[Rfam]
Annotation: TPP riboswitch aptamer (THI element): a 106-nucleotide RNA sequence from Fervidicola ferrireducens. Lineage of the source: Bacteria > Bacillati > Bacillota > Thermosediminibacteraceae > Fervidicola.
RNA sequence: AUAGACUACCGGGGGUGCUGCGAAAAGCGGCUGAGACGGGAAUUUUUCCCGAACCCUUGAACCUGUUUGGGUAAUGCCAGCGUAGGGAGGGUAGUCGGUUGCUUUU
Dot-bracket structure: .....(((((((((.((((((.....)))))......(((((...))))))..))))....((((.((((......))))..))))...)))))............